[Rfam]
RNA sequence: AAUUAAAUCUGGCAAAUCUAGAGAAAUCUAGAGACGCAAAGCUAAAGGGGCUAAGGUUAAUUUUAACUAUGCCAGCCAGUUGCUGAA
Numbered sequence: 001a002a003u004u005a006a007a008u009c010u011g012g013c014a015a016a017u018c019u020a021g022a023g024a025a026a027u028c029u030a031g032a033g034a035c036g037c038a039a040a041g042c043u044a045a046a047g048g049g050g051c052u053a054a055g056g057u058u059a060a061u062u063u064u065a066a067c068u069a070u071g072c073c074a075g076c077c078a079g080u081u082g083c084u085g086a087a
Stems, first nucleotide, its partner, number of pairs: 012037002017032006040081004047077002049073003056067004

The family of this 87-nucleotide RNA sequence from Romboutsia weinsteinii is "c-di-GMP-I riboswitch aptamer". It scores 82 bits against the family's covariance model. The family's consensus secondary structure is taken from published work. Rfam links the family to the GO term cyclic-di-GMP binding.